Rfam assigns this 142-nucleotide RNA sequence from Pelusios castaneus to the family "Small nucleolar RNA SNORA14". Lineage of the source: Eukaryota > Eumetazoa > Euteleostomi > Sarcopterygii > Pelusios. Rfam classes the family as an H/ACA-box small nucleolar RNA. Rfam 15.1 lists 848 matches to the family in 633 species.

RNA sequence: UUGCAUUCUCAAACCCCUCUGGUAGCUUUGCUGUCAUAGCUUCCAGGAUAAGAAUGAAUGCAAGAAAAAGCUGAAGAUCUAUCCAAAAUGUGGAGCUAGUUUCCUGUGGCUCUUCAUUAUUUCAUGUCUUCAACAACAGUUU
Numbered sequence: 001u002u003g004c005a006u007u008c009u010c011a012a013a014c015c016c017c018u019c020u021g022g023u024a025g026c027u028u029u030g031c032u033g034u035c036a037u038a039g040c041u042u043c044c045a046g047g048a049u050a051a052g053a054a055u056g057a058a059u060g061c062a063a064g065a066a067a068a069a070g071c072u073g074a075a076g077a078u079c080u081a082u083c084c085a086a087a088a089u090g091u092g093g094a095g096c097u098a099g100u101u102u103c104c105u106g107u108g109g110c111u112c113u114u115c116a117u118u119a120u121u122u123c124a125u126g127u128c129u130u131c132a133a134c135a136a137c138a139g140u141u142u
Stems, first nucleotide, its partner, number of pairs: 003061004009053002018047005024041003065142003072132006087118004092113002095110002101106001